[Rfam]
RNA sequence: GGUUCUCUUAACAACUGGCGAUCGAGUGGAUUAACCACGAGGAAGUUAGGAGAACAACCAUCUACAGUCGCUCGCCUGGGCUGGUAGA
Numbered sequence: 001g002g003u004u005c006u007c008u009u010a011a012c013a014a015c016u017g018g019c020g021a022u023c024g025a026g027u028g029g030a031u032u033a034a035c036c037a038c039g040a041g042g043a044a045g046u047u048a049g050g051a052g053a054a055c056a057a058c059c060a061u062c063u064a065c066a067g068u069c070g071c072u073c074g075c076c077u078g079g080g081c082u083g084g085u086a087g088a
Stems, first nucleotide, its partner, number of pairs: 003054010015042002017076005026038004065083005
The record is an 88-nucleotide RNA from Tengunoibacter tsumagoiensis, which matches "ZMP/ZTP riboswitch aptamer (pfl RNA motif)" in Rfam. Rfam links the family to the GO terms regulation of purine nucleotide biosynthetic process and one-carbon metabolic process.